Rfam assigns this 274-nucleotide sequence from Pundamilia nyererei to the family "Small Cajal body specific RNA 6". It scores 112 bits against the family's covariance model. NCBI's taxonomy places the organism under Eukaryota, Neoteleostei, Percomorphaceae, Haplochromini, Pundamilia. The family's consensus secondary structure is taken from published work. About the family: U88 is small Cajal body specific RNA (scaRNA). scaRNAs are a novel class of small nuclear RNAs which localise to the Cajal bodies.
RNA sequence: GGUCAGUGAUGAGCAGUAAAAGGUCUGAUUACCCACAAUCCCCUCCUGCUGCCCUUUGGCUCCCAGCAGCCCUGCUUUCUGCUCCCAUCGUGCUCCAGUGAUGCAGCGGUGGUACCGGCAGCUGCUGACACACAGGAUGCGACAUCACACCGGGGCCUGUACAGAGCUCCUACAGCCUCUCUGUGAUGAUGUCAUCCAACAGAAUCUCUCAGCACGGAGCGUCGGGCUGAGGAGGAGGAGCAGGGAGCUGAUCUCAAGUUUUCAAGCUGAGACC
Dot-bracket structure: ((((..............................(.(.(..((((((.(..........(((((((((((..............(((((((.(.........)..)))))))........))))))).......(((((..((........((((.(((((.........))))).))))..........)))))))..................))))...........).))))))...........).).)................))))